[Rfam]
Rfam assigns this 62-nucleotide sequence from Methylomusa anaerophila to the family "Fluoride riboswitch aptamer (crcB RNA motif)".
A search with the family's covariance model found it, with a score of 51 bits.
The source organism's lineage runs through Bacteria, Bacillati, Bacillota, Negativicutes and Methylomusa.
RNA sequence: CGAAAUAGCGGCGAUGGAGUUCGCCUGAACCCCGUGCAAACGGUAAUGACUCCUACCACGUA
Number, nucleotide and partner (000 for none) at each position: 001c000002g000003a000004a000005a000006u000007a000008g000009c000010g025011g024012c023013g022014a000015u000016g053017g052018a051019g050020u049021u048022c013023g012024c011025c010026u000027g000028a000029a000030c000031c000032c043033c042034g041035u040036g000037c000038a000039a000040a035041c034042g033043g032044u000045a000046a000047u000048g021049a020050c019051u018052c017053c016054u000055a000056c000057c000058a000059c000060g000061u000062a000